[Rfam]
RNA sequence: AGGCCUGAAGAGAGAAGUAAAACCUGAUCAGUAGCCUCUGUGGCAGCUGUUGAUCAGCACUUGCCUCUCUCUUUCUCUCUG
Numbered sequence: 001a002g003g004c005c006u007g008a009a010g011a012g013a014g015a016a017g018u019a020a021a022a023c024c025u026g027a028u029c030a031g032u033a034g035c036c037u038c039u040g041u042g043g044c045a046g047c048u049g050u051u052g053a054u055c056a057g058c059a060c061u062u063g064c065c066u067c068u069c070u071c072u073u074u075c076u077c078u079c080u081g
Base pairs, nucleotide, nucleotide: 008073009072010071011070012069013068014067015066017064018063019062020061024057025056026055027054028053029052032049033048034047035046
RNA: mir-574 microRNA precursor family
Organism: Cnephaeus nilssonii